[Rfam]
RNA sequence: AGAAUCCUAUCAGGUAAUACCUAGCCAGUAGCCUGUACCGAGUCCUUGGAGUCGAAACGGUAACGUUAGAUUUAAGCGUAGGACAGGGAGCAAACGAGCCGAAACGAAAGUGAAGCUAUUGAGCCGCGAAAUUAUUCUUUUUUUAAUGAAGAGGUCGAUACUGUAUUAGUAGUCGCAGACAACAUUCUAUAAAUUGUUAUGGUGAGAUUUAUGGAACUCUUCCGAGGUCAGAGUGCU
Numbered sequence: 001a002g003a004a005u006c007c008u009a010u011c012a013g014g015u016a017a018u019a020c021c022u023a024g025c026c027a028g029u030a031g032c033c034u035g036u037a038c039c040g041a042g043u044c045c046u047u048g049g050a051g052u053c054g055a056a057a058c059g060g061u062a063a064c065g066u067u068a069g070a071u072u073u074a075a076g077c078g079u080a081g082g083a084c085a086g087g088g089a090g091c092a093a094a095c096g097a098g099c100c101g102a103a104a105c106g107a108a109a110g111u112g113a114a115g116c117u118a119u120u121g122a123g124c125c126g127c128g129a130a131a132u133u134a135u136u137c138u139u140u141u142u143u144u145a146a147u148g149a150a151g152a153g154g155u156c157g158a159u160a161c162u163g164u165a166u167u168a169g170u171a172g173u174c175g176c177a178g179a180c181a182a183c184a185u186u187c188u189a190u191a192a193a194u195u196g197u198u199a200u201g202g203u204g205a206g207a208u209u210u211a212u213g214g215a216a217c218u219c220u221u222c223c224g225a226g227g228u229c230a231g232a233g234u235g236c237u
Stems, first nucleotide, its partner, number of pairs: 011035004018030003022205001024203002038087002042084001044082003047078002049073005055067001057066003120231001121229001123228003127224002148222006154180003160173003185216011